[Rfam]
RNA sequence: CCAUAAUCCGAAUCAGUGUAUCCGACUAUGG
Numbered sequence: 001c002c003a004u005a006a007u008c009c010g011a012a013u014c015a016g017u018g019u020a021u022c023c024g025a026c027u028a029u030g031g
Base pairs, nucleotide, nucleotide: 001031002030003029004028005027007025009024010023012021013020014018

Iron response element II: a 31-nucleotide RNA from Adiantum capillus-veneris.
A reference for the family is Kohler et al. (1999), "Molecular cloning of mouse glycolate oxidase. High evolutionary conservation and presence of an iron-responsive element-like sequence in the mRNA", J Biol Chem.
Rfam 15.1 lists 5,197 matches to the family in 722 species.
The family's consensus secondary structure is taken from published work.
IRE, TFRC, SLC40A1, SDHB, SLC11A2, CDC42BPA, ACO2, ALAS2_H.SAPIENS, CDC14A, EPAS1, ALAS2, qoxD, Hao1, NDUFS1, transferrin, Aconitate.